[Rfam]
Shown here is a 132-nucleotide RNA sequence from Paenibacillus ferrarius, a member of the family "c-di-AMP riboswitch aptamer (ydaO/yuaA leader)". A search with the family's covariance model found it, with a score of 92 bits. Pairs were carried over by alignment from the consensus structure.
RNA sequence: CAACUUAGAAGGCCGAAGCUUUUAUGAAGCACGGGGGACCCACUAUUAGGGGUGAAGCCGCAACAGCGGCCGGGUGAUUACUCUUUGAUCCGAAUCCGACAGCUAACCUCGCAGGCCGCAAAAAGGAGAGGU
Numbered sequence: 001c002a003a004c005u006u007a008g009a010a011g012g013c014c015g016a017a018g019c020u021u022u023u024a025u026g027a028a029g030c031a032c033g034g035g036g037g038a039c040c041c042a043c044u045a046u047u048a049g050g051g052g053u054g055a056a057g058c059c060g061c062a063a064c065a066g067c068g069g070c071c072g073g074g075u076g077a078u079u080a081c082u083c084u085u086u087g088a089u090c091c092g093a094a095u096c097c098g099a100c101a102g103c104u105a106a107c108c109u110c111g112c113a114g115g116c117c118g119c120a121a122a123a124a125g126g127a128g129a130g131g132u
Stems, first nucleotide, its partner, number of pairs: 011117004018030003032111005041049001050097003058069004072091004